[Rfam]
RNA sequence: AGGAGGACCAACCACAGUGGCGGUGGCCAGCUGUGGAACCCUGGAUUCAGCUCCUGCAGUAGCUGUGGAGCUCUCAGCCUGCAGAGGCCUGGAUGCUCCGGGGGCGG
Numbered sequence: 001a002g003g004a005g006g007a008c009c010a011a012c013c014a015c016a017g018u019g020g021c022g023g024u025g026g027c028c029a030g031c032u033g034u035g036g037a038a039c040c041c042u043g044g045a046u047u048c049a050g051c052u053c054c055u056g057c058a059g060u061a062g063c064u065g066u067g068g069a070g071c072u073c074u075c076a077g078c079c080u081g082c083a084g085a086g087g088c089c090u091g092g093a094u095g096c097u098c099c100g101g102g103g104g105c106g107g
Base pairs, nucleotide, nucleotide: 002099003098004097005096007094009091010090012087013086019079020078021077023075025074026073029072030071031070032069034067035066037064041059042058043057
RNA: mir-8834 microRNA precursor family
Organism: Canis lupus